[Rfam]
RNA sequence: GGGAAGCAUCAAAGAGAUAUGAUGUUUCCUGAAAUAUUCUUCCUAUAGAAAAUUUUAAUGUUUCCUGCUUGUAGUAAUUGAGAGCAAGUUUCUGCAGGUCUCACAUCUCCAGAGACAUGA
Numbered sequence: 001g002g003g004a005a006g007c008a009u010c011a012a013a014g015a016g017a018u019a020u021g022a023u024g025u026u027u028c029c030u031g032a033a034a035u036a037u038u039c040u041u042c043c044u045a046u047a048g049a050a051a052a053u054u055u056u057a058a059u060g061u062u063u064c065c066u067g068c069u070u071g072u073a074g075u076a077a078u079u080g081a082g083a084g085c086a087a088g089u090u091u092c093u094g095c096a097g098g099u100c101u102c103a104c105a106u107c108u109c110c111a112g113a114g115a116c117a118u119g120a
Base pairs, nucleotide, nucleotide: 001030002029003028005026006025007024008023009022010021011020054113055112056111067099068098069097070096071095072094073093074092076090077089078087

The record is a 120-nucleotide RNA sequence from Gossypium arboreum, which matches "Small nucleolar RNA snoR104" in Rfam. A search with the family's covariance model found it, with a score of 90 bits. By type it is an H/ACA-box small nucleolar RNA. Lineage of the source: Eukaryota > Tracheophyta > Pentapetalae > Malvoideae > Gossypium.